A member of the RNA family "Small nucleolar RNA Z13/snr52" from Beauveria bassiana, 98 nucleotides long.
[Rfam]
RNA sequence: UCUGGUUACAUGAUGAACUAUUACGGAUGUAAACCUUUUGUCACAACUGAUAGCGCAAACCAUGUGGAAAUUUUCCGUUGCCUUCCUUCUGAUCCCAA
Dot-bracket structure: ..(((..................((((..............................................)))).................))).
Lineage of the source: Eukaryota > Opisthokonta > saccharomyceta > Beauveria > Beauveria bassiana.
Gene Ontology terms of the family: nucleolus and RNA processing.
The family's RNA type in Rfam is C/D-box small nucleolar RNA.